Annotation: The family of this 62-nucleotide RNA from Actinomadura litoris is "Guanidine-II riboswitch aptamer (mini-ykkC)". The base pairs follow the family's consensus structure, which is taken from published work. The literature on the family includes a 2017 paper in Biochemistry by Sherlock et al., "Biochemical Validation of a Second Guanidine Riboswitch Class in Bacteria". Simpler in structure and has fewer highly conserved nucleotide positions than the ykkC-yxkD leader.

RNA sequence: GUGGGGGGACGACCCCCCGCGCCCCCCGGAACAGACCUGAUUCUUGUGGGGGGACGACCCCC
Numbered sequence: 001g002u003g004g005g006g007g008g009a010c011g012a013c014c015c016c017c018c019g020c021g022c023c024c025c026c027c028g029g030a031a032c033a034g035a036c037c038u039g040a041u042u043c044u045u046g047u048g049g050g051g052g053g054a055c056g057a058c059c060c061c062c
Stems, first nucleotide, its partner, number of pairs: 001020008049062005